Shown here is a 105-nucleotide RNA sequence from Cohnella luojiensis, a member of the family "TPP riboswitch aptamer (THI element)".
About the family: Vitamin B(1) in its active form thiamin pyrophosphate (TPP) is an essential coenzyme that is synthesised by coupling of pyrimidine and thiazole moieties in bacteria. The previously detected thiamin-regulatory element, thi box was extended, resulting in a new, highly conserved RNA secondary structure, the THI element, which is widely distributed in eubacteria and also occurs in some archaea.
RNA sequence: GAAUUCCACUAGGGGCGCCCGCAAGGGCUGAGAUAAGGCAAUUGCCUUGGUCCCUUUGAACCUGAUCUGGGUCAUGCCAGCGUAGGAAAGUGGGCAAUGUGCGUC
Numbered sequence: 001g002a003a004u005u006c007c008a009c010u011a012g013g014g015g016c017g018c019c020c021g022c023a024a025g026g027g028c029u030g031a032g033a034u035a036a037g038g039c040a041a042u043u044g045c046c047u048u049g050g051u052c053c054c055u056u057u058g059a060a061c062c063u064g065a066u067c068u069g070g071g072u073c074a075u076g077c078c079a080g081c082g083u084a085g086g087a088a089a090g091u092g093g094g095c096a097a098u099g100u101g102c103g104u105c
Stems, first nucleotide, its partner, number of pairs: 006093005011055004016049001017028004035048005061086004067080004